RNA sequence: UGUCAAGACGUCUUAGCGCAAUUUCGGCGAGCAGGUUUCUUUUGCCUAAUUGAAGGGUGAAAGAACGUG
Numbered sequence: 001u002g003u004c005a006a007g008a009c010g011u012c013u014u015a016g017c018g019c020a021a022u023u024u025c026g027g028c029g030a031g032c033a034g035g036u037u038u039c040u041u042u043u044g045c046c047u048a049a050u051u052g053a054a055g056g057g058u059g060a061a062a063g064a065a066c067g068u069g
Base pairs, nucleotide, nucleotide: 011064012063013061014060017059018058019057022055023054024053025052026051029047031045032044033043034042035041
S-element: a 69-nucleotide RNA sequence from Rhodoblastus acidophilus. The family's consensus secondary structure is taken from published work. Its family is annotated with mRNA transcription and translation regulator activity in the Gene Ontology. This family represents a group of S-elements from p42d and related plasmids. The S-element has multiple functions and is believed to act as a negative regulator of repC transcription, be required for efficient replication and act as a translational enhancer of repC.